A member of the RNA family "let-7 microRNA precursor family" from Litomosoides sigmodontis, 78 nucleotides long. Rfam's curators write: This family represents the microRNAs (miRNA) let-7 and mir-98. let-7 was identified from a study of developmental timing in C. elegans, and was later shown to be part of a much larger class of non-coding RNAs termed miRNAs. On this family, see Rougvie, Nat Rev Genet 2001: "Control of developmental timing in animals".
[Rfam]
RNA sequence: GCUCGAUGAGGUAGUAGGUUGUAUAGUUAUGAGUUGUAUCAUGCCGGAGAAACUGUCCAGCCUGCUAGCUUGCCGUGC
Numbered sequence: 001g002c003u004c005g006a007u008g009a010g011g012u013a014g015u016a017g018g019u020u021g022u023a024u025a026g027u028u029a030u031g032a033g034u035u036g037u038a039u040c041a042u043g044c045c046g047g048a049g050a051a052a053c054u055g056u057c058c059a060g061c062c063u064g065c066u067a068g069c070u071u072g073c074c075g076u077g078c
Stems, first nucleotide, its partner, number of pairs: 001078002004075002008071003012067010023056005029042004044049001